[Rfam]
Notes:
Rfam assigns this 106-nucleotide sequence from Denticeps clupeoides to the family "Z30 small nucleolar RNA". It is annotated as a C/D-box small nucleolar RNA. The match comes from Rfam's covariance-model search (64 bits). The source organism's lineage runs through Eukaryota, Eumetazoa, Vertebrata, Gnathostomata and Denticeps.
RNA sequence: CUGCGGUGAUGAGCUGUGAUUGCAUCUGACCUGGUAGUGCCCCGCCCUCCCCGGGGGGCGUCGGCUCUGAUCAGGGUGUGACUUCUGUAAUCUUCUCUCUGAGCGG
Numbered sequence: 001c002u003g004c005g006g007u008g009a010u011g012a013g014c015u016g017u018g019a020u021u022g023c024a025u026c027u028g029a030c031c032u033g034g035u036a037g038u039g040c041c042c043c044g045c046c047c048u049c050c051c052c053g054g055g056g057g058g059c060g061u062c063g064g065c066u067c068u069g070a071u072c073a074g075g076g077u078g079u080g081a082c083u084u085c086u087g088u089a090a091u092c093u094u095c096u097c098u099c100u101g102a103g104c105g106g
Base pairs, nucleotide, nucleotide: 001105003104004103039065040064041063